The family of this 78-nucleotide RNA from Xenopus laevis is "mir-1 microRNA precursor family".
The base pairs follow the family's consensus structure, which was predicted with RNAalifold.
The source organism's lineage runs through Eukaryota, Teleostomi, Tetrapoda, Pipoidea and Xenopus.
About the family: This family represents the microRNA (miRNA) mir-1 family. miRNAs are transcribed as ~70nt precursors (modelled here) and subsequently processed by the Dicer enzyme to give a ~22nt product. In this case the mature sequence comes from the 3' arm of the precursor. The extents of the hairpin precursors are not generally known and are estimated based on hairpin prediction. The products are thought to have regulatory roles through complementarity to mRNA. The involvement of Dicer in miRNA processing suggests a relationship with the phenomenon of RNA interference. miRNAs are numbered based on the sequence of the mature RNA. This family also contains the mir-206 from human, which appears to be related to mir-1.
Rfam links the family to the GO terms miRNA-mediated post-transcriptional gene silencing and RISC complex.
The match comes from Rfam's covariance-model search (55 bits).

RNA sequence: AUCGGAGAUACAUACUUCUUUACAUUCCAUAGCAUUGGCACUUUCAUAUGGACAUAUAAAGAAGUAUGUCUCCCAAAC
Numbered sequence: 001a002u003c004g005g006a007g008a009u010a011c012a013u014a015c016u017u018c019u020u021u022a023c024a025u026u027c028c029a030u031a032g033c034a035u036u037g038g039c040a041c042u043u044u045c046a047u048a049u050g051g052a053c054a055u056a057u058a059a060a061g062a063a064g065u066a067u068g069u070c071u072c073c074c075a076a077a078c
Stems, first nucleotide, its partner, number of pairs: 007072002010069013024055001027051005
Dot-bracket structure: ......((.(((((((((((((.(..(((((...............)))))...).))))))))))))).))......